A member of the RNA family "MIR2118 microRNA precursor family" from Leersia perrieri, 172 nucleotides long.

RNA sequence: AUGGGGAAGAGGAAGUUAGAGAAGUUCUAAGGAUGAUGGGAUUGGGAACAUAUGAGAAAGCACGAGCUCUCUGAUUUGCCCCUGGCAUUGGAGAUGGAAAUUUCCUUGCGUUUUUUUCUCGAUGCCUCCCAUUCCUAUGAUUCUUAGGCUCUCCUUCCUCUUCCUUUUCCUC
Numbered sequence: 001a002u003g004g005g006g007a008a009g010a011g012g013a014a015g016u017u018a019g020a021g022a023a024g025u026u027c028u029a030a031g032g033a034u035g036a037u038g039g040g041a042u043u044g045g046g047a048a049c050a051u052a053u054g055a056g057a058a059a060g061c062a063c064g065a066g067c068u069c070u071c072u073g074a075u076u077u078g079c080c081c082c083u084g085g086c087a088u089u090g091g092a093g094a095u096g097g098a099a100a101u102u103u104c105c106u107u108g109c110g111u112u113u114u115u116u117u118c119u120c121g122a123u124g125c126c127u128c129c130c131a132u133u134c135c136u137a138u139g140a141u142u143c144u145u146a147g148g149c150u151c152u153c154c155u156u157c158c159u160c161u162u163c164c165u166u167u168u169c170c171u172c
Base pairs, nucleotide, nucleotide: 009163010162011161012160013159015157021153022152026148027147028146029145030144031143032142033141034140037137038136039135040134041133043131044130045129046128047127049124050123051122055119056118057117058116059115060114
Source information
The literature on the family includes a 2009 paper in Nucleic Acids Res by Xue et al., "Characterization and expression profiles of miRNAs in rice seeds". NCBI's taxonomy places the organism under Eukaryota, Euphyllophyta, Mesangiospermae, Poales, Leersia.